[Rfam]
Nucleotides: 119
Stems, first nucleotide, its partner, number of pairs: 003073011016062003020058005026052001028050002031047001033045001102115001104113002
Number, partner (000 for none) and nucleotide at each position: 001000c002000u003073a004072a005071a006070a007069g008068g009067u010066g011065c012064u013063c014000c015000u016062u017061g018060a019000a020058c021057u022056g023055g024054u025000u026052g027000u028050u029049u030000u031047u032000u033045g034000a035000c036000u037000a038000u039000u040000a041000c042000a043000a044000c045033c046000u047031a048000a049029a050028g051000u052026u053000u054024a055023c056022c057021a058020g059000u060018u061017c062016a063013g064012a065011g066010c067009a068008c069007c070006u071005u072004u073003u074000c075000u076000a077000u078000g079000u080000c081000u082000a083000a084000a085000u086000c087000a088000a089000a090000g091000u092000c093000g094000a095000u096000c097000g098000g099000c100000u101000a102115a103000a104113u105112u106000u107000u108000c109000g110000g111000u112105g113104g114000a115102u116000c117000c118000a119000g

The record is a 119-nucleotide sequence from Acidithrix ferrooxidans, which matches "Actinobacteria sRNA Ms_IGR-7" in Rfam. NCBI's taxonomy places the organism under Bacteria, Acidimicrobiia, Acidimicrobiales, Acidimicrobiaceae, Acidithrix. The match comes from Rfam's covariance-model search (48 bits). By type it is a small RNA.